[Rfam]
RNA sequence: UGCAAUGAUAGAGGCGCGGAAUCGCAAGAGUAUCCGGCAUACCCUGCAAUGGGGCAGAGCACCCCGCCGGAGAAAGGGCCCUUCCGCCGAAGGGCCGGUCCCCUGCCUGGAGGACCGGUUGCCUGGGCCGUUGGGAUAACAUCUCACGGACUGCCACAUAUCAUCUGUGUGGAGCGCUAUCAUUGAG
Numbered sequence: 001u002g003c004a005a006u007g008a009u010a011g012a013g014g015c016g017c018g019g020a021a022u023c024g025c026a027a028g029a030g031u032a033u034c035c036g037g038c039a040u041a042c043c044c045u046g047c048a049a050u051g052g053g054g055c056a057g058a059g060c061a062c063c064c065c066g067c068c069g070g071a072g073a074a075a076g077g078g079c080c081c082u083u084c085c086g087c088c089g090a091a092g093g094g095c096c097g098g099u100c101c102c103c104u105g106c107c108u109g110g111a112g113g114a115c116c117g118g119u120u121g122c123c124u125g126g127g128c129c130g131u132u133g134g135g136a137u138a139a140c141a142u143c144u145c146a147c148g149g150a151c152u153g154c155c156a157c158a159u160a161u162c163a164u165c166u167g168u169g170u171g172g173a174g175c176g177c178u179a180u181c182a183u184u185g186a187g
Base pairs, nucleotide, nucleotide: 006182007181008180009179010178011177016087017086018085019084020083021082024079025078033071034070035069036068037067038066091124092123093122095118096117097116098115099114100113101112125152126151128149129148130147131146133145134144135143136142154172155171156170157169158168159167160166